[Rfam]
RNA sequence: AGUAAGGAUAGAGGUGCAGAAUUCAUCAGUACUUAUGUGGAAGAGAAUGAGCUCUUAUGACACAUAAUGAAAGGGGAAUCUGCCGAAGUGGAAGGAUGCUCAUCAUCCUAAAGCUGGGUCUGCGAUUGAAUAAAUGCAGAACUGUCAUAUAGGGAACAGUACUAUAUGGAGGGCUAUCGUGCUU
Numbered sequence: 001a002g003u004a005a006g007g008a009u010a011g012a013g014g015u016g017c018a019g020a021a022u023u024c025a026u027c028a029g030u031a032c033u034u035a036u037g038u039g040g041a042a043g044a045g046a047a048u049g050a051g052c053u054c055u056u057a058u059g060a061c062a063c064a065u066a067a068u069g070a071a072a073g074g075g076g077a078a079u080c081u082g083c084c085g086a087a088g089u090g091g092a093a094g095g096a097u098g099c100u101c102a103u104c105a106u107c108c109u110a111a112a113g114c115u116g117g118g119u120c121u122g123c124g125a126u127u128g129a130a131u132a133a134a135u136g137c138a139g140a141a142c143u144g145u146c147a148u149a150u151a152g153g154g155a156a157c158a159g160u161a162c163u164a165u166a167u168g169g170a171g172g173g174c175u176a177u178c179g180u181g182c183u184u
Base pairs, nucleotide, nucleotide: 007178008177009176010175011174016083017082018081019080020079022077023076024075033067034066035065036064037063038062039061087115088114089113093109094108095107096106097105098104116143117142119140120139121138122137123136124135126133145169146168147167148166149165150164151163
A member of the RNA family "Lysine riboswitch aptamer" from Oceanobacillus zhaokaii, 184 nucleotides long. Pairs were carried over by alignment from the consensus structure, which is taken from published work. From the family's description: Riboswitches are metabolite binding domains within certain messenger RNAs that serve as precision sensors for their corresponding targets. The organism belongs to Oceanobacillus, within Bacteria.